[Rfam]
About this RNA:
This 102-nucleotide sequence from Natranaerovirga pectinivora belongs to the Rfam family "Purine riboswitch aptamer". The literature on the family includes a 2003 paper in Cell by Mandal et al., "Riboswitches Control Fundamental Biochemical Pathways in Bacillus subtilis and Other Bacteria". The base pairs follow the family's consensus structure, which is taken from published work.
RNA sequence: AAAACUUAAUAAAAAUUUACUCGUAUAAUUUUAGAGAUAUGGUCUAAGCGUUUCUACCGAAUCACCGUAAAAGAUUCGACUACGGGUGUUAAUAUAGUUUUU
Numbered sequence: 001a002a003a004a005c006u007u008a009a010u011a012a013a014a015a016u017u018u019a020c021u022c023g024u025a026u027a028a029u030u031u032u033a034g035a036g037a038u039a040u041g042g043u044c045u046a047a048g049c050g051u052u053u054c055u056a057c058c059g060a061a062u063c064a065c066c067g068u069a070a071a072a073g074a075u076u077c078g079a080c081u082a083c084g085g086g087u088g089u090u091a092a093u094a095u096a097g098u099u100u101u102u
Base pairs, nucleotide, nucleotide: 018088019087020086021085022084023083024082025081030048031047032046033045034044035043058078059077060076061075062074063073
Dot-bracket structure: .................((((((((....((((((.......)))))).........((((((.........))))))..))))))))..............